The family of this 172-nucleotide RNA sequence from Erinaceus europaeus is "Interferon gamma 5' UTR regulatory element". About the family: This family represents a pseudoknot containing stem-loop structure found in the 5' UTR of interferon (IFN) gamma mRNA. This structure is thought to be involved in translational regulation and the pseudoknot has been found to activate PKR which is known to be a translational inhibitor. Mutations in the pseudoknot structure have been found to reduce PKR activation and increase the translation of IFN-gamma.

RNA sequence: CAGUUUUCUGAUCAUCUGAGGAUCAGCUAUUAGAAAAAGAACGAUCAGUCGUGUUCUUUGUACCUGAUCGACUUAAUACAGGCGCUACUGAUUCCAACUACUUCAGCCCAAAUCUUUCUGAAACAAUGAAAUACGCAGGCUAUAUCUUAGCUCUGCAGCUUUGUGUCAUGUU
Numbered sequence: 001c002a003g004u005u006u007u008c009u010g011a012u013c014a015u016c017u018g019a020g021g022a023u024c025a026g027c028u029a030u031u032a033g034a035a036a037a038a039g040a041a042c043g044a045u046c047a048g049u050c051g052u053g054u055u056c057u058u059u060g061u062a063c064c065u066g067a068u069c070g071a072c073u074u075a076a077u078a079c080a081g082g083c084g085c086u087a088c089u090g091a092u093u094c095c096a097a098c099u100a101c102u103u104c105a106g107c108c109c110a111a112a113u114c115u116u117u118c119u120g121a122a123a124c125a126a127u128g129a130a131a132u133a134c135g136c137a138g139g140c141u142a143u144a145u146c147u148u149a150g151c152u153c154u155g156c157a158g159c160u161u162u163g164u165g166u167c168a169u170g171u172u
Base pairs, nucleotide, nucleotide: 009070010069011068012067013066014065015121016120018118019117020115021114022113026107027106028105032102033101035099043093044092045091046090047089048088049087053085054084057082058081059080060079122172123171124170125169126166127165128164131145132144133143135141149160150159151158152157